[Rfam]
RNA sequence: AGCACAUGAUGAUGACGCGUCGAUCUUCGACGCCAUUAUCACCUCCCUGUUGGACUUCGGCCGAGCUUUGAGCUCGGCCUUUUUU
Numbered sequence: 001a002g003c004a005c006a007u008g009a010u011g012a013u014g015a016c017g018c019g020u021c022g023a024u025c026u027u028c029g030a031c032g033c034c035a036u037u038a039u040c041a042c043c044u045c046c047c048u049g050u051u052g053g054a055c056u057u058c059g060g061c062c063g064a065g066c067u068u069u070g071a072g073c074u075c076g077g078c079c080u081u082u083u084u085u
Base pairs, nucleotide, nucleotide: 008040009039010038011037012036013035014034059079060078061077062076063075064074065073066072
About this RNA: This 85-nucleotide RNA from Pelagimonas phthalicica belongs to the Rfam family "Singlet oxygen resistance RNA X". Its family is annotated with response to photooxidative stress in the Gene Ontology. By type it is a small RNA. A reference for the family is Peng et al. (2016), "Regulation of a polyamine transporter by the conserved 3' UTR-derived sRNA SorX confers resistance to singlet oxygen and organic hydroperoxides in Rhodobacter sphaeroides", RNA Biol.